[Rfam]
RNA sequence: ACGGACCGUUCGCUCUACACAUUCGACAGGGGCGGGGGAACCAUCAGAUGGGCUCCUUCAGGAGUCCUAGGGGUAAAGACACGUCAUCACCGGCCCUGGCGCUGGUGGAUGCACUGCGUGUCCGGAUGUCCCAUCCGAAUCCGACAGCUAACUCCGCAGGCACAGGGAAAGGCAUC
Number, nucleotide and partner (000 for none) at each position: 001a000002c000003g000004g000005a000006c160007c159008g000009u000010u000011c031012g000013c029014u000015c000016u000017a000018c000019a000020c000021a000022u000023u000024c000025g000026a000027c000028a000029g013030g000031g011032g157033c156034g155035g154036g153037g152038g000039a000040a000041c000042c070043a000044u000045c000046a000047g000048a000049u000050g000051g000052g000053c000054u000055c000056c000057u000058u000059c000060a000061g000062g000063a000064g000065u000066c000067c000068u000069a000070g042071g142072g141073g140074u000075a000076a000077a000078g000079a121080c120081a119082c118083g117084u116085c000086a000087u000088c000089a000090c000091c000092g000093g000094c000095c000096c000097u000098g000099g000100c000101g000102c000103u000104g000105g000106u000107g000108g000109a000110u000111g000112c000113a000114c000115u000116g084117c083118g082119u081120g080121u079122c000123c000124g136125g135126a134127u133128g000129u000130c000131c000132c000133a127134u126135c125136c124137g000138a000139a000140u073141c072142c071143g000144a000145c000146a000147g000148c000149u000150a000151a000152c037153u036154c035155c034156g033157c032158a000159g007160g006161c000162a000163c000164a000165g000166g000167g000168a000169a000170a000171g000172g000173c000174a000175u000176c000
RNA: c-di-AMP riboswitch aptamer (ydaO/yuaA leader)